The record is a 170-nucleotide RNA from Salix brachista, which matches "MIR168 microRNA precursor family" in Rfam. NCBI's taxonomy places the organism under Eukaryota, Viridiplantae, Streptophyta, Tracheophyta, Salix. Gene Ontology terms of the family: RISC complex and miRNA-mediated post-transcriptional gene silencing. Rfam 15.1 lists 518 matches to the family in 218 species.
RNA sequence: UUACCGGCGGUCUCUGAUUCGCUUGGUGCAGGUCGGGAACUGAUUCGGCGGCGAUUUGAUUGCCAGAUGGCCUGACAUUGUUGGUUUGUUAUAGAAAAAGAAAAAGAAAUAACAAAAAACAGCGAAUUGGAUCCCGCCUUGCAUCAACUGAAUCGGAGACGGCGGUGAAG
Numbered sequence: 001u002u003a004c005c006g007g008c009g010g011u012c013u014c015u016g017a018u019u020c021g022c023u024u025g026g027u028g029c030a031g032g033u034c035g036g037g038a039a040c041u042g043a044u045u046c047g048g049c050g051g052c053g054a055u056u057u058g059a060u061u062g063c064c065a066g067a068u069g070g071c072c073u074g075a076c077a078u079u080g081u082u083g084g085u086u087u088g089u090u091a092u093a094g095a096a097a098a099a100g101a102a103a104a105a106g107a108a109a110u111a112a113c114a115a116a117a118a119a120c121a122g123c124g125a126a127u128u129g130g131a132u133c134c135c136g137c138c139u140u141g142c143a144u145c146a147a148c149u150g151a152a153u154c155g156g157a158g159a160c161g162g163c164g165g166u167g168a169a170g
Stems, first nucleotide, its partner, number of pairs: 013157002017153004023147010034136005040130008